[Rfam]
RNA sequence: UUGCCGUCCGAAGAAUCGUCGUCGCAGCUUCCGUACAGAGAGCUCUUGCUUUCAUAUUGUGCUGUGGGGAAAGUCCCCGGAGAUGCAGAUUAUGUCCUCGUUCAACUAACGGAAAGCGACCGUCUCCAAGCACGACGGUACUGAACGAGGACGGCGAGAGUGCUUUGCUCAGUCUGAUUUUUCUGGCUUGUGGCUCCCUCUCGACCGCUCUGCUGUCUCUCUGAUAGCACACUAUCCGACCAAGGUGUUCAUGCGCGAAGAUAUGAGCGUGUGUAUCGCUCGGUAGCCUGCUGGAGGUGUAGGCACGUUGUUGCUCAUAGACACAGUUAUACGAUUGUAGCCCUUCUCAGGGUCUUCAACACAAUGGGGCUCACUCUCGUUCGGCA
Numbered sequence: 001u002u003g004c005c006g007u008c009c010g011a012a013g014a015a016u017c018g019u020c021g022u023c024g025c026a027g028c029u030u031c032c033g034u035a036c037a038g039a040g041a042g043c044u045c046u047u048g049c050u051u052u053c054a055u056a057u058u059g060u061g062c063u064g065u066g067g068g069g070a071a072a073g074u075c076c077c078c079g080g081a082g083a084u085g086c087a088g089a090u091u092a093u094g095u096c097c098u099c100g101u102u103c104a105a106c107u108a109a110c111g112g113a114a115a116g117c118g119a120c121c122g123u124c125u126c127c128a129a130g131c132a133c134g135a136c137g138g139u140a141c142u143g144a145a146c147g148a149g150g151a152c153g154g155c156g157a158g159a160g161u162g163c164u165u166u167g168c169u170c171a172g173u174c175u176g177a178u179u180u181u182u183c184u185g186g187c188u189u190g191u192g193g194c195u196c197c198c199u200c201u202c203g204a205c206c207g208c209u210c211u212g213c214u215g216u217c218u219c220u221c222u223g224a225u226a227g228c229a230c231a232c233u234a235u236c237c238g239a240c241c242a243a244g245g246u247g248u249u250c251a252u253g254c255g256c257g258a259a260g261a262u263a264u265g266a267g268c269g270u271g272u273g274u275a276u277c278g279c280u281c282g283g284u285a286g287c288c289u290g291c292u293g294g295a296g297g298u299g300u301a302g303g304c305a306c307g308u309u310g311u312u313g314c315u316c317a318u319a320g321a322c323a324c325a326g327u328u329a330u331a332c333g334a335u336u337g338u339a340g341c342c343c344u345u346c347u348c349a350g351g352g353u354c355u356u357c358a359a360c361a362c363a364a365u366g367g368g369g370c371u372c373a374c375u376c377u378c379g380u381u382c383g384g385c386a
Stems, first nucleotide, its partner, number of pairs: 002386005009379003014336006022067007038053006072371002075369004110118002230299003235295004240290001244288003255279004265272001339355002341352003
Description
The family of this 386-nucleotide sequence from Guyanagaster necrorhizus is "RNase MRP". NCBI's taxonomy places the organism under Eukaryota, Opisthokonta, Dikarya, Agaricomycotina, Guyanagaster. By type it is a ribozyme. On this family, see Schmitt et al., FASEB J 1993: "Secondary structure of RNase MRP RNA as predicted by phylogenetic comparison". Clan: RNaseP clan.